Record summary:
This 82-nucleotide RNA sequence belongs to the Rfam family "Flavo-1 RNA".
RNA sequence: CCCUAGCCCCGAUUGAAACGAAAAUCCUUGUUGUUUUUUAAAGAAAAAAACAACAAGAUUGAAGAGUAAAGCGGGAAAUAGC
Dot-bracket structure: ........(((.((....(...((((..(((((((((((.....))))))))))).))))...)....)).)))........
It is annotated as a small RNA.